The record is a 137-nucleotide RNA sequence from Dicentrarchus labrax, which matches "Small nucleolar RNA SNORA15" in Rfam. By type it is an H/ACA-box small nucleolar RNA. ACA15 is a member of the H/ACA class of snoRNA that guide the sites of modification of uridines to pseudouridines. The literature on the family includes a 2001 paper in EMBO J by Huttenhofer et al., "RNomics: an experimental approach that identifies 201 candidates for novel, small, non-messenger RNAs in mouse". Rfam links the family to the GO terms nucleolus and RNA processing. It scores 53 bits against the family's covariance model. Rfam 15.1 lists 974 matches to the family in 624 species.
RNA sequence: GCAUGGACGAAUUCUGUUCCAGCUGCUCUGUGAUGGAUACAGUCAGACACCAUGCAAAAGCCUCGUCUCAUUUCUGCUAAAUGACUGGAUGAGUGUUCCCCUCGGCCUCAUCCAACUGUACAGGAAUGAGUACAAAG
Dot-bracket structure: ((((((.......((((.....................)))).......))))))...........(((.((((((......(..((((((((.............))))))))..)...)))))).))).......
The source organism's lineage runs through Eukaryota, Craniata, Neoteleostei, Percomorphaceae and Dicentrarchus. The family's consensus secondary structure was predicted with RNAfold.